RNA sequence: GGUUGAUAUUGGUGCAAAUCCAAUCAUCUCAAUUUGCAAUUUUAGAUGAGAAAGAAUUCCCCAUUGGUAACAAAUGCUUAUCCAUUGAGCAGAGGAAAUCAUAU
Number, nucleotide and partner (000 for none) at each position: 001g000002g000003u000004u000005g000006a000007u000008a000009u023010u022011g021012g020013u000014g000015c000016a000017a000018a000019u000020c012021c011022a010023a009024u000025c000026a000027u000028c000029u000030c000031a000032a000033u000034u000035u000036g000037c000038a000039a000040u000041u000042u000043u000044a000045g000046a000047u000048g000049a000050g000051a000052a000053a000054g000055a000056a000057u000058u000059c094060c000061c092062c000063a085064u084065u000066g082067g081068u080069a079070a078071c000072a000073a000074a000075u000076g000077c000078u070079u069080a068081u067082c066083c000084a064085u063086u000087g000088a000089g000090c000091a000092g061093a000094g059095g000096a000097a000098a000099u000100c000101a000102u000103a000104u000
The family of this 104-nucleotide sequence from Cucumis melo is "Plastid-rps12 3UTR RNA". Rfam's curators write: Plastid rpl20 is a non-coding RNA (ncRNA) recognised in plastids. A reference for the family is Richter et al. (2023), "Retrograde signaling in plants: A critical review focusing on the GUN pathway and beyond", Plant Commun. NCBI's taxonomy places the organism under Eukaryota, eudicotyledons, rosids, Cucurbitales, Cucumis.